[Rfam]
RNA sequence: AGAAGUGAGGAAGAAGGCACUAAAGUCGGCCGAAAGUAAAAGUGGGAGAAAUUCCCCCAGACAUCGCAGGAGCCUGCCGCGUUGGAACCAGAGGUGAGUAACAGUGUCUGAUUAUGGGACAAGAAUUAAGCCAGCAUCAAAUUUAUGUAGGGUGAUUAAAAGAGGCUUUAAAAUCACGAGGAGUAAAGGUUAAAAGUAAUGAUUUAUUUAAGUUUUUUGAUUUUGUAAAAGAUACCUGCCCUU
Numbered sequence: 001a002g003a004a005g006u007g008a009g010g011a012a013g014a015a016g017g018c019a020c021u022a023a024a025g026u027c028g029g030c031c032g033a034a035a036g037u038a039a040a041a042g043u044g045g046g047a048g049a050a051a052u053u054c055c056c057c058c059a060g061a062c063a064u065c066g067c068a069g070g071a072g073c074c075u076g077c078c079g080c081g082u083u084g085g086a087a088c089c090a091g092a093g094g095u096g097a098g099u100a101a102c103a104g105u106g107u108c109u110g111a112u113u114a115u116g117g118g119a120c121a122a123g124a125a126u127u128a129a130g131c132c133a134g135c136a137u138c139a140a141a142u143u144u145a146u147g148u149a150g151g152g153u154g155a156u157u158a159a160a161a162g163a164g165g166c167u168u169u170a171a172a173a174u175c176a177c178g179a180g181g182a183g184u185a186a187a188g189g190u191u192a193a194a195a196g197u198a199a200u201g202a203u204u205u206a207u208u209u210a211a212g213u214u215u216u217u218u219g220a221u222u223u224u225g226u227a228a229a230a231g232a233u234a235c236c237u238g239c240c241c242u243u
Stems, first nucleotide, its partner, number of pairs: 006014001052098003055094002060089001062084001065081003069077001104120002107118004127170003130166003177219008187205006228243002231240001233238001
This 243-nucleotide sequence from Rhinopithecus roxellana belongs to the Rfam family "Mason-Pfizer monkey virus packaging signal". It scores 176 bits against the family's covariance model. Its family is annotated with viral genome packaging in the Gene Ontology. The base pairs follow the family's consensus structure, which was predicted with PFOLD. For this family Rfam cites "Mutational analysis of the predicted secondary RNA structure of the Mason-Pfizer monkey virus packaging signal" (Mustafa et al., Virus Res, 2004). This family represents a group of sequences that are related to the Mason-Pfizer monkey virus (MPMV) packaging signal.